[Rfam]
RNA sequence: CUCCCGGUCUCCAUCUCCGGGAAUACUGCAGAGGCACACCAUCCUUGCCUGAAGUGCGGCGGGUUCAAGCCCUCCAAGCCAUGGCACAAUCCUCCGUUCCUGCGCGGCCUCCCGGCCGUUCGGACCGGUCGUCUGUCGCGUUUCGCGUUCAGUCCAUGAGCGGGGU
Numbered sequence: 001c002u003c004c005c006g007g008u009c010u011c012c013a014u015c016u017c018c019g020g021g022a023a024u025a026c027u028g029c030a031g032a033g034g035c036a037c038a039c040c041a042u043c044c045u046u047g048c049c050u051g052a053a054g055u056g057c058g059g060c061g062g063g064u065u066c067a068a069g070c071c072c073u074c075c076a077a078g079c080c081a082u083g084g085c086a087c088a089a090u091c092c093u094c095c096g097u098u099c100c101u102g103c104g105c106g107g108c109c110u111c112c113c114g115g116c117c118g119u120u121c122g123g124a125c126c127g128g129u130c131g132u133c134u135g136u137c138g139c140g141u142u143u144c145g146c147g148u149u150c151a152g153u154c155c156a157u158g159a160g161c162g163g164g165g166u
Stems, first nucleotide, its partner, number of pairs: 002022006033049004056146003083113002121135005

This 166-nucleotide sequence from Aureimonas sp. AU20 belongs to the Rfam family "speF leader". This family is a putative regulatory RNA structure that is found upstream of the speF gene encoding ornithine decarboxylase in Agrobacterium tumefaciens and other alpha-proteobacteria. The family's RNA type in Rfam is cis-regulatory leader.